[Rfam]
RNA sequence: ACAAUGAUACUUCUGUCUAGUCACAGCACCGAGUGAAAUCGGAAUCAGGCAAUGAGGGCAGCUUCGAGAGAACCUCGGAGGGAUGAGAAUUCCAUGA
Numbered sequence: 001a002c003a004a005u006g007a008u009a010c011u012u013c014u015g016u017c018u019a020g021u022c023a024c025a026g027c028a029c030c031g032a033g034u035g036a037a038a039u040c041g042g043a044a045u046c047a048g049g050c051a052a053u054g055a056g057g058g059c060a061g062c063u064u065c066g067a068g069a070g071a072a073c074c075u076c077g078g079a080g081g082g083a084u085g086a087g088a089a090u091u092c093c094a095u096g097a
Base pairs, nucleotide, nucleotide: 012094013061014060015059016058017057018056062080063079064078066076067075068074081093082092083091

Rfam assigns this 97-nucleotide RNA sequence to the family "pemK RNA".
Rfam classes the family as a cis-regulatory element.